Plastid-psbA-1 3UTR RNA: a 119-nucleotide sequence from Morus notabilis. The family's consensus secondary structure was predicted with LocARNA. Its Rfam clan is "Plastid-psbA 3UTR RNA clan". The literature on the family includes a 2023 paper in Plant Commun by Richter et al., "Retrograde signaling in plants: A critical review focusing on the GUN pathway and beyond". It scores 62 bits against the family's covariance model. The source organism's lineage runs through Eukaryota, Streptophyta, Streptophytina, Rosales and Morus.
RNA sequence: UCCAAGUUUCUUCUCUUUUUGUCUAACUCAGCAAAAGACUAAUAAAUAAUAAUUUAUUAUGAAAAAAAGGAGCAAUACCAAACUUCUUGUUCUAUCACGAAGUUUGGUAUUGCUCCUUU
Numbered sequence: 001u002c003c004a005a006g007u008u009u010c011u012u013c014u015c016u017u018u019u020u021g022u023c024u025a026a027c028u029c030a031g032c033a034a035a036a037g038a039c040u041a042a043u044a045a046a047u048a049a050u051a052a053u054u055u056a057u058u059a060u061g062a063a064a065a066a067a068a069g070g071a072g073c074a075a076u077a078c079c080a081a082a083c084u085u086c087u088u089g090u091u092c093u094a095u096c097a098c099g100a101a102g103u104u105u106g107g108u109a110u111u112g113c114u115c116c117u118u119u
Base pairs, nucleotide, nucleotide: 009038010037011036012035066119067118068117069116070115071114072113073112074111075110076109077108078107080105081104082103084101085100086099088097